Bacterial RNase P class A: a 361-nucleotide sequence from Vermiphilus pyriformis. It scores 236 bits against the family's covariance model. Rfam links the family to the GO terms ribonuclease P activity, tRNA processing and dimeric ribonuclease P complex. The family's RNA type in Rfam is ribozyme. The base pairs follow the family's consensus structure, which is taken from published work. Ribonuclease P (RNase P) is a ubiquitous endoribonuclease, found in archaea, bacteria and eukarya as well as chloroplasts and mitochondria.
Nucleotides: 361
Base pairs, nucleotide, nucleotide: 001357002356003355004354006352007351008350009349010348011346013309014308015307016306017305018304019303021045022044023043024042025041026040027039028038050344051343052342054341055340056339057338058337059234060233061232062231067268069266072230073229074228075227076226077111078110079109080108081107112126113124114123115122116121127225128224132223133222134219135218136217148165149164150161151160152159173191174190175189176188177187178186193214194213195212196211197210198209199208200207201206238290239289240288241287248281249280250279251278252277253276259273260272262270263269
Number, partner (000 for none) and nucleotide at each position: 001357g002356u003355g004354g005000g006352u007351a008350a009349c010348c011346a012000a013309g014308a015307c016306a017305a018304u019303c020000g021045c022044u023043a024042u025041c026040a027039g028038g029000a030000u031000a032000u033000u034000u035000a036000u037000a038028c039027u040026u041025g042024a043023u044022a045021g046000a047000g048000g049000a050344a051343a052342g053000u054341c055340c056339g057338g058337a059234c060233u061232c062231c063000u064000a065000a066000c067268g068000a069266a070000u071000a072230a073229g074228a075227c076226a077111c078110c079109u080108u081107g082000g083000g084000a085000g086000a087000c088000u089000u090000g091000g092000u093000a094000a095000a096000a097000c098000a099000a100000g101000u102000a103000c104000a105000a106000u107081c108080a109079a110078g111077g112126a113124g114123g115122a116121c117000g118000c119000a120000a121116g122115u123114c124113c125000a126112u127225g128224g129000a130000a131000a132223g133222u134219g135218c136217c137000a138000c139000a140000g141000a142000a143000a144000a145000u146000a147000a148165c149164c150161g151160c152159c153000u154000u155000a156000a157000a158000c159152g160151g161150u162000a163000a164149g165148g166000g167000u168000g169000a170000a171000a172000a173191c174190g175189g176188g177187u178186g179000g180000u181000a182000a183000g184000a185000g186178c187177a188176c189175c190174c191173g192000a193214u194213u195212a196211u197210a198209u199208g200207u201206a202000g203000c204000a205000a206201u207200a208199c209198a210197u211196a212195u213194g214193a215000u216000g217136g218135g219134u220000a221000a222133a223132c224128c225127c226076u227075g228074u229073c230072u231062g232061g233060a234059g235000c236000a237000a238290g239289a240288c241287a242000a243000a244000g245000u246000a247000g248281g249280c250279a251278u252277g253276u254000a255000c256000a257000g258000u259273a260272g261000u262270u263269c264000g265000u266069u267000c268067u269263g270262a271000u272260u273259u274000a275000a276253a277252c278251a279250u280249g281248c282000g283000g284000g285000u286000a287241u288240g289239u290238c291000g292000c293000g294000u295000a296000g297000a298000u299000a300000a301000a302000u303019g304018a305017u306016u307015g308014u309013c310000g311000c312000g313000u314000u315000u316000g317000u318000a319000g320000u321000a322000u323000a324000c325000a326000a327000a328000u329000g330000a331000a332000c333000a334000g335000a336000a337058u338057c339056c340055g341054g342052c343051u344050u345000a346011u347000u348010g349009g350008u351007u352006a353000g354004c355003c356002a357001c358000c359000u360000u361000a